Shown here is a 101-nucleotide sequence from Thermoflavimicrobium daqui, a member of the family "Purine riboswitch aptamer". Taxonomically the source falls in Thermoflavimicrobium (Bacteria, Bacillati, Bacillota, Caryophanales). The base pairs follow the family's consensus structure, which is taken from published work.
[Rfam]
RNA sequence: AAUCGAAUAAUAUUUUCAGCUCGUAUAAUUGCAGGAAUUGGCCUGCUAGUCUCUACCUAAUCACCGGAAAUGAUUAGACUACGAGUGAGGUUACCUUUUUA
Numbered sequence: 001a002a003u004c005g006a007a008u009a010a011u012a013u014u015u016u017c018a019g020c021u022c023g024u025a026u027a028a029u030u031g032c033a034g035g036a037a038u039u040g041g042c043c044u045g046c047u048a049g050u051c052u053c054u055a056c057c058u059a060a061u062c063a064c065c066g067g068a069a070a071u072g073a074u075u076a077g078a079c080u081a082c083g084a085g086u087g088a089g090g091u092u093a094c095c096u097u098u099u100u101a
Stems, first nucleotide, its partner, number of pairs: 019086007029048001031046005057077007